The record is a 117-nucleotide RNA from Isoptericola variabilis, which matches "SAM (S-adenosyl methionine) riboswitch aptamer" in Rfam. A reference for the family is Weinberg et al. (2008), "The aptamer core of SAM-IV riboswitches mimics the ligand-binding site of SAM-I riboswitches", RNA. Pairs were carried over by alignment from the consensus structure, which is taken from published work. From the family's description: SAM-IV is a mRNA element that regulates gene expression via direct sensing of S-adenosylmethionine (SAM or AdoMet). SAM-IV riboswitches share conserved nucleotide positions with the previously described SAM-I riboswitches sequence analysis and molecular recognition experiments suggest that SAM-I and SAM-IV riboswitches share similar ligand binding sites, but have different scaffolds. It scores 62 bits against the family's covariance model.

[Rfam]
RNA sequence: GGUCAACGAGUAAUCAGCGAUACGGCCUCCGCGUGCUGAUCCGGCAACCGCGCUCCUCGCGCACGGUGCCCCGGGAGGAAGACCGGCCGGCCCGAUCCCGGGCUGGAAGCGCGAGGA
Dot-bracket structure: ((((.....(..((((((....((.......)).)))))).)(((..(((.((.......)).))).)))..........))))..((((((((....))))))))...........
Numbered sequence: 001g002g003u004c005a006a007c008g009a010g011u012a013a014u015c016a017g018c019g020a021u022a023c024g025g026c027c028u029c030c031g032c033g034u035g036c037u038g039a040u041c042c043g044g045c046a047a048c049c050g051c052g053c054u055c056c057u058c059g060c061g062c063a064c065g066g067u068g069c070c071c072c073g074g075g076a077g078g079a080a081g082a083c084c085g086g087c088c089g090g091c092c093c094g095a096u097c098c099c100g101g102g103c104u105g106g107a108a109g110c111g112c113g114a115g116g117a
Stems, first nucleotide, its partner, number of pairs: 001084004010042001013040006023033002043070003048066003052062002087106008